[Rfam]
L17-Actino-Proteobacteria ribosomal protein leader: a 56-nucleotide sequence from Aggregicoccus sp. 17bor-14. A reference for the family is Eckert and Weinberg (2020), "Discovery of 20 novel ribosomal leader candidates in bacteria and archaea", BMC Microbiol. By type it is a cis-regulatory leader. Taxonomically the source falls in Aggregicoccus (Bacteria, Pseudomonadati, Myxococcales, Myxococcaceae).
RNA sequence: GUGCCCUCCGGUGUCGGGGCGCCCUUCCCACCCGGUACCUGAUACGGCCGGAGUGG
Numbered sequence: 001g002u003g004c005c006c007u008c009c010g011g012u013g014u015c016g017g018g019g020c021g022c023c024c025u026u027c028c029c030a031c032c033c034g035g036u037a038c039c040u041g042a043u044a045c046g047g048c049c050g051g052a053g054u055g056g
Base pairs, nucleotide, nucleotide: 001022002021003020004019005018006017007016028056029055030054032051033050034049035048036047